[Rfam]
RNA sequence: AAAAGUAGAAAAGCGCCAGAGCUAUAAGAAAAGUAGCUGACGAGGACAGGGAGUAUCGAGAAUUCGGCGGAUGCCCUGCGGUAUGACAUUGCCGAGAACCAUUGACAAAGGUAAGAAGUGAUUCUUAUUACAAAAACAAUGUGGUGUCUUGC
Numbered sequence: 001a002a003a004a005g006u007a008g009a010a011a012a013g014c015g016c017c018a019g020a021g022c023u024a025u026a027a028g029a030a031a032a033g034u035a036g037c038u039g040a041c042g043a044g045g046a047c048a049g050g051g052a053g054u055a056u057c058g059a060g061a062a063u064u065c066g067g068c069g070g071a072u073g074c075c076c077u078g079c080g081g082u083a084u085g086a087c088a089u090u091g092c093c094g095a096g097a098a099c100c101a102u103u104g105a106c107a108a109a110g111g112u113a114a115g116a117a118g119u120g121a122u123u124c125u126u127a128u129u130a131c132a133a134a135a136a137c138a139a140u141g142u143g144g145u146g147u148c149u150u151g152c
Stems, first nucleotide, its partner, number of pairs: 020038005047078005056067004079094005100141005111128007